[Rfam]
RNA: Purine riboswitch aptamer
Organism: Solibacillus sp. R5-41
RNA sequence: CUUAUUACACACGAAUAUUACUGUAUAACCUCAAGAAUACGGCUUGAGGGUCUCUACCAGGAACCUUAAAAUCCUGAUUACAGAAAAUGAACUAUUCAUU
Numbered sequence: 001c002u003u004a005u006u007a008c009a010c011a012c013g014a015a016u017a018u019u020a021c022u023g024u025a026u027a028a029c030c031u032c033a034a035g036a037a038u039a040c041g042g043c044u045u046g047a048g049g050g051u052c053u054c055u056a057c058c059a060g061g062a063a064c065c066u067u068a069a070a071a072u073c074c075u076g077a078u079u080a081c082a083g084a085a086a087a088u089g090a091a092c093u094a095u096u097c098a099u100u
Base pairs, nucleotide, nucleotide: 018086019085021083022082023081024080025079029049030048031047032046033045034044035043058076059075060074061073062072
Dot-bracket structure: .................((.(((((...(((((((.......)))))))........(((((.........)))))..))))).))..............